The record is a 268-nucleotide sequence from Aaosphaeria arxii, which matches "Fungal signal recognition particle RNA" in Rfam.
Its family is annotated with SRP-dependent cotranslational protein targeting to membrane, signal sequence recognition, signal recognition particle, plasma membrane targeting and signal recognition particle, endoplasmic reticulum targeting in the Gene Ontology.

RNA sequence: UACCUGUAAUGGGUCUUCGUCAGAAGGUGCACCGUCAUCCACACGGUCCUUUCCAUUUCCUGACCUUGGCCGAGAGCCCAGUUCGAGUCCGGUGGUGUCCGUUAAUCCACUCCUUCAGGUAACUAAGGAUGCUGGACGGACCUAAGCAAUGAAUACUACUGUCGAGGGAAGCAAUUCUGCAGACGCGUAUUCACCAUUGGACGGCGGCGCUGGAAUACUCUUGCUUUGGUUGGAAUGGGUUGUGUGGGCUGGUGUAUCGACUGAUUUU
Numbered sequence: 001u002a003c004c005u006g007u008a009a010u011g012g013g014u015c016u017u018c019g020u021c022a023g024a025a026g027g028u029g030c031a032c033c034g035u036c037a038u039c040c041a042c043a044c045g046g047u048c049c050u051u052u053c054c055a056u057u058u059c060c061u062g063a064c065c066u067u068g069g070c071c072g073a074g075a076g077c078c079c080a081g082u083u084c085g086a087g088u089c090c091g092g093u094g095g096u097g098u099c100c101g102u103u104a105a106u107c108c109a110c111u112c113c114u115u116c117a118g119g120u121a122a123c124u125a126a127g128g129a130u131g132c133u134g135g136a137c138g139g140a141c142c143u144a145a146g147c148a149a150u151g152a153a154u155a156c157u158a159c160u161g162u163c164g165a166g167g168g169a170a171g172c173a174a175u176u177c178u179g180c181a182g183a184c185g186c187g188u189a190u191u192c193a194c195c196a197u198u199g200g201a202c203g204g205c206g207g208c209g210c211u212g213g214a215a216u217a218c219u220c221u222u223g224c225u226u227u228g229g230u231u232g233g234a235a236u237g238g239g240u241u242g243u244g245u246g247g248g249c250u251g252g253u254g255u256a257u258c259g260a261c262u263g264a265u266u267u268u
Base pairs, nucleotide, nucleotide: 002014003013004012019265020264021263022262023261027257028256029255030254031253032252039247040246041245042244043243044242045241046240047239048238049237051235052234068226069225071223072222073221074220075219076218078213079212080211081210082209083207084206085205087202088201089200090199091198092197093196094195095194097141099139100138101137102136103135105133108131109130111129112128113127114126115125117124118123142146150193151192152191153190154189155188156187160185161184162183163182168177169176170175
Rfam classes the family as a non-coding RNA gene. NCBI's taxonomy places the organism under Eukaryota, Fungi, Ascomycota, leotiomyceta, Aaosphaeria arxii. A search with the family's covariance model found it, with a score of 143 bits. A reference for the family is Wild et al. (2002), "Towards the structure of the mammalian signal recognition particle", Curr Opin Struct Biol.